[Rfam]
RNA sequence: UAAAAGGGCCUUUGUCGUGACUGGCACGUUUCCCUCCUUGGAGGGUUACGCGGAAUCGCAAGCAAGAGAUUUCGGAGGCAUAAUUUAUGCAAUCCGGCGGCAGUUGGUUGUCCCUUCGACCCGACGCCCCU
Numbered sequence: 001u002a003a004a005a006g007g008g009c010c011u012u013u014g015u016c017g018u019g020a021c022u023g024g025c026a027c028g029u030u031u032c033c034c035u036c037c038u039u040g041g042a043g044g045g046u047u048a049c050g051c052g053g054a055a056u057c058g059c060a061a062g063c064a065a066g067a068g069a070u071u072u073c074g075g076a077g078g079c080a081u082a083a084u085u086u087a088u089g090c091a092a093u094c095c096g097g098c099g100g101c102a103g104u105u106g107g108u109u110g111u112c113c114c115u116u117c118g119a120c121c122c123g124a125c126g127c128c129c130c131u
Stems, first nucleotide, its partner, number of pairs: 008079005013026005027050003032045005051074007097129001099128003103125005110120003
RNA: U11 spliceosomal RNA